[Rfam]
The family of this 102-nucleotide sequence from Anaerosporobacter mobilis is "Purine riboswitch aptamer". The match comes from Rfam's covariance-model search (83 bits). Its Rfam clan is "Purine riboswitches". Riboswitches are metabolite binding domains within certain messenger RNAs that serve as precision sensors for their corresponding targets. The source organism's lineage runs through Bacteria, Bacillota, Lachnospirales, Anaerosporobacter and Anaerosporobacter mobilis.

Nucleotides: 102
Stems, first nucleotide, its partner, number of pairs: 018088001020086006030048006058078007
Number, partner (000 for none) and nucleotide at each position: 001000c002000a003000u004000a005000a006000c007000u008000c009000a010000a011000a012000a013000u014000a015000a016000g017000u018088a019000c020086a021085u022084c023083g024082u025081a026000u027000a028000a029000a030048g031047u032046u033045g034044a035043a036000a037000a038000u039000a040000u041000g042000g043035u044034u045033c046032a047031a048030c049000a050000g051000u052000u053000u054000c055000u056000a057000c058078c059077a060076a061075a062074c063073u064072a065000c066000c067000u068000u069000a070000a071000a072064u073063a074062g075061u076060u077059u078058g079000a080000c081025u082024a083023c084022g085021a086020u087000a088018u089000g090000a091000a092000a093000a094000u095000u096000a097000a098000a099000a100000a101000c102000a